[Rfam]
RNA sequence: CCGCCCGUCGCUACUACCGAUUGAAUGGGUUAAUGAGGAUUUCGGAAUGACGAAGCUACAACUUCCAUGGGGUCUGUCUUAAUUGGGUACCUGUCAAAAGAAGUUAUCCGAAUUUGCACAUUUAGAGGAAGUAAAAGUCGUAACAAGGUUUCCGUAGGUGAACCUGCGGAAGGAUCAUUA
Number, nucleotide and partner (000 for none) at each position: 001c147002c000003g144004c000005c000006c140007g139008u000009c137010g000011c000012u133013a132014c131015u130016a000017c128018c127019g000020a000021u124022u000023g123024a122025a121026u120027g119028g000029g117030u116031u000032a114033a113034u112035g000036a000037g109038g108039a107040u106041u000042u000043c103044g000045g000046a000047a000048u098049g000050a000051c000052g094053a000054a092055g091056c000057u089058a000059c086060a000061a084062c000063u000064u000065c000066c000067a000068u000069g000070g000071g000072g000073u000074c000075u000076g000077u000078c000079u000080u000081a000082a000083u000084u061085g000086g059087g000088u000089a057090c000091c055092u054093g000094u052095c000096a000097a000098a048099a000100g000101a000102a000103g043104u000105u000106a040107u039108c038109c037110g000111a000112a034113u033114u032115u000116g030117c029118a000119c027120a026121u025122u024123u023124a021125g000126a000127g018128g017129a000130a015131g014132u013133a012134a000135a000136a000137g009138u000139c007140g006141u000142a000143a000144c003145a000146a000147g001148g000149u172150u171151u170152c169153c168154g167155u166156a165157g164158g163159u000160g000161a000162a000163c158164c157165u156166g155167c154168g153169g152170a151171a150172g149173g000174a000175u000176c000177a000178u000179u000180a000

Eukaryotic small subunit ribosomal RNA: a 180-nucleotide part of an RNA from Batkoa obscura.
The family has 90 seed sequences and 75,755 matches in Rfam 15.1.
The sequence is in the family's curated seed alignment.